[Rfam]
RNA sequence: CAGCAGGAUUUAGACUACCAUAAAGCUGCUAAGUAUUGUGUUGUUCUCCCUGCUCAAAUUAAGGUUGUUUCUUAACUAUACCUGUCUGCUAUACCCCUGUACCAGCCAGGACACUUGGUCUCAUACAU
Numbered sequence: 001c002a003g004c005a006g007g008a009u010u011u012a013g014a015c016u017a018c019c020a021u022a023a024a025g026c027u028g029c030u031a032a033g034u035a036u037u038g039u040g041u042u043g044u045u046c047u048c049c050c051u052g053c054u055c056a057a058a059u060u061a062a063g064g065u066u067g068u069u070u071c072u073u074a075a076c077u078a079u080a081c082c083u084g085u086c087u088g089c090u091a092u093a094c095c096c097c098u099g100u101a102c103c104a105g106c107c108a109g110g111a112c113a114c115u116u117g118g119u120c121u122c123a124u125a126c127a128u
Stems, first nucleotide, its partner, number of pairs: 003053005018043001020041003024037002081110004086105003